[Rfam]
RNA: ZMP/ZTP riboswitch aptamer (pfl RNA motif)
RNA sequence: UUUGGUAUGUGUAACUGGCGUAAACGUGGAUAACCACGAGGAAACACAUAUUUAUAUGCCGUACGCCUGGGCAAAGUAU
Numbered sequence: 001u002u003u004g005g006u007a008u009g010u011g012u013a014a015c016u017g018g019c020g021u022a023a024a025c026g027u028g029g030a031u032a033a034c035c036a037c038g039a040g041g042a043a044a045c046a047c048a049u050a051u052u053u054a055u056a057u058g059c060c061g062u063a064c065g066c067c068u069g070g071g072c073a074a075a076g077u078a079u
Stems, first nucleotide, its partner, number of pairs: 004052009015041002017067005026037004057073004
Dot-bracket structure: ...(((((((((..(([[[[[....((((....))))..))..)))))))))....((((..]]]]]..))))......